Notes:
A member of the RNA family "Guanidine-II riboswitch aptamer (mini-ykkC)" from Defluviicoccus vanus, 51 nucleotides long.
RNA sequence: UGAGGAGGACGACCUCCCUGGCGGGUGAGCAUUAUAGUCGGGACGACCCGA
Numbered sequence: 001u002g003a004g005g006a007g008g009a010c011g012a013c014c015u016c017c018c019u020g021g022c023g024g025g026u027g028a029g030c031a032u033u034a035u036a037g038u039c040g041g042g043a044c045g046a047c048c049c050g051a
Stems, first nucleotide, its partner, number of pairs: 001020002004017005038051005